A member of the RNA family "Purine riboswitch aptamer" from Oceanobacillus halophilus, 102 nucleotides long. NCBI's taxonomy places the organism under Bacteria, Bacillati, Bacillota, Caryophanales, Oceanobacillus. The family's consensus secondary structure is taken from published work. The literature on the family includes a 2003 paper in Cell by Mandal et al., "Riboswitches Control Fundamental Biochemical Pathways in Bacillus subtilis and Other Bacteria".
[Rfam]
RNA sequence: ACGAACUAAAUUAAAAUUUUUCAUAUAGUCGCGGGGAUAUGGCCUGCAAGUUUCUACCAGUUUACCGUAAAUAAACUGACUAUGGAAAGCGAGUACGGAAAA
Numbered sequence: 001a002c003g004a005a006c007u008a009a010a011u012u013a014a015a016a017u018u019u020u021u022c023a024u025a026u027a028g029u030c031g032c033g034g035g036g037a038u039a040u041g042g043c044c045u046g047c048a049a050g051u052u053u054c055u056a057c058c059a060g061u062u063u064a065c066c067g068u069a070a071a072u073a074a075a076c077u078g079a080c081u082a083u084g085g086a087a088a089g090c091g092a093g094u095a096c097g098g099a100a101a102a
Stems, first nucleotide, its partner, number of pairs: 018088008029049001031047005058078007